[Rfam]
RNA sequence: CUUGCGGCGGUCUCUCAUUCGCUUGGUGCAGGUCGGGACCUACCUCGCCGGCGACUAUGACGUCAGCUUCCGGUGACGAUGAAUACUUUUUUGUUUGCUUAUGGAGGAGUUCGGGUCCCGCCUUGCAUCAACUGAAUAGGAAACUGCAGCGAAU
Numbered sequence: 001c002u003u004g005c006g007g008c009g010g011u012c013u014c015u016c017a018u019u020c021g022c023u024u025g026g027u028g029c030a031g032g033u034c035g036g037g038a039c040c041u042a043c044c045u046c047g048c049c050g051g052c053g054a055c056u057a058u059g060a061c062g063u064c065a066g067c068u069u070c071c072g073g074u075g076a077c078g079a080u081g082a083a084u085a086c087u088u089u090u091u092u093g094u095u096u097g098c099u100u101a102u103g104g105a106g107g108a109g110u111u112c113g114g115g116u117c118c119c120g121c122c123u124u125g126c127a128u129c130a131a132c133u134g135a136a137u138a139g140g141a142a143a144c145u146g147c148a149g150c151g152a153a154u
Stems, first nucleotide, its partner, number of pairs: 013141002017137004023131010034120005040114002
The family of this 154-nucleotide RNA from Capsicum baccatum is "MIR168 microRNA precursor family". NCBI's taxonomy places the organism under Eukaryota, Streptophyta, Mesangiospermae, Capsiceae, Capsicum. Pairs were carried over by alignment from the consensus structure, which was predicted with WAR.